[Rfam]
RNA sequence: GGGCCGAUGAUGCAAAACAUGCUCCUACGGUCUUUGACCUAUGGGGAGGUUUUCCUAAGCAUAUUUCCCAAGCUGAGGCCC
Numbered sequence: 001g002g003g004c005c006g007a008u009g010a011u012g013c014a015a016a017a018c019a020u021g022c023u024c025c026u027a028c029g030g031u032c033u034u035u036g037a038c039c040u041a042u043g044g045g046g047a048g049g050u051u052u053u054c055c056u057a058a059g060c061a062u063a064u065u066u067c068c069c070a071a072g073c074u075g076a077g078g079c080c081c
Base pairs, nucleotide, nucleotide: 002080003079004078005077